[Rfam]
RNA sequence: CCGCACCCACUGACUGACCCGUGUACGGCAGGAGCGGGGGACCCACAGGUACGACUGCCUGUUCCGGUUCCCGGAACGGCUUGGGGUUAAGCCGCGUGAAAACGCGGCCGGGCAUCUCCAGUCCGAACCCGACAGCUCACCUCGCAGGCGCCGGAGAGGAAUUCA
Numbered sequence: 001c002c003g004c005a006c007c008c009a010c011u012g013a014c015u016g017a018c019c020c021g022u023g024u025a026c027g028g029c030a031g032g033a034g035c036g037g038g039g040g041a042c043c044c045a046c047a048g049g050u051a052c053g054a055c056u057g058c059c060u061g062u063u064c065c066g067g068u069u070c071c072c073g074g075a076a077c078g079g080c081u082u083g084g085g086g087u088u089a090a091g092c093c094g095c096g097u098g099a100a101a102a103c104g105c106g107g108c109c110g111g112g113c114a115u116c117u118c119c120a121g122u123c124c125g126a127a128c129c130c131g132a133c134a135g136c137u138c139a140c141c142u143c144g145c146a147g148g149c150g151c152c153g154g155a156g157a158g159g160a161a162u163u164c165a
Base pairs, nucleotide, nucleotide: 001148002147007032008031034145035144036143037142038141039140044083045082084130085129086128092107093106094105095104110124111123112122113121
Shown here is a 165-nucleotide RNA sequence from Streptomyces fungicidicus, a member of the family "c-di-AMP riboswitch aptamer (ydaO/yuaA leader)". The base pairs follow the family's consensus structure. Rfam links the family to the GO terms regulation of gene expression and cyclic-di-AMP binding. NCBI's taxonomy places the organism under Bacteria, Bacillati, Actinomycetota, Kitasatosporales, Streptomyces. Rfam describes the family as follows. This family represents a conserved RNA structure found upstream of the ydaO and yuaA genes in Bacillus subtilis and related genes in other bacteria.